[Rfam]
RNA sequence: AAUAGGGAAAAGGAAGCCAUGAGUAUCUCAGAGCGGUGGGCAUGGGAACAUGGAGGAAAGCCUAGAUUUCUUGGCCACUUAAUUUAGGAGCAAAGAUUGUUUUGUGUUUUCCUGAUGCCUCCCAUGCCUAUUGUUCUUAGGUAUUCCUUCCUUUUUCCUAUUUGC
Numbered sequence: 001a002a003u004a005g006g007g008a009a010a011a012g013g014a015a016g017c018c019a020u021g022a023g024u025a026u027c028u029c030a031g032a033g034c035g036g037u038g039g040g041c042a043u044g045g046g047a048a049c050a051u052g053g054a055g056g057a058a059a060g061c062c063u064a065g066a067u068u069u070c071u072u073g074g075c076c077a078c079u080u081a082a083u084u085u086a087g088g089a090g091c092a093a094a095g096a097u098u099g100u101u102u103u104g105u106g107u108u109u110u111c112c113u114g115a116u117g118c119c120u121c122c123c124a125u126g127c128c129u130a131u132u133g134u135u136c137u138u139a140g141g142u143a144u145u146c147c148u149u150c151c152u153u154u155u156u157c158c159u160a161u162u163u164g165c
Stems, first nucleotide, its partner, number of pairs: 009156005016149001021146003026141003030137006037130011049117003053113001055112007
RNA: MIR2118 microRNA precursor family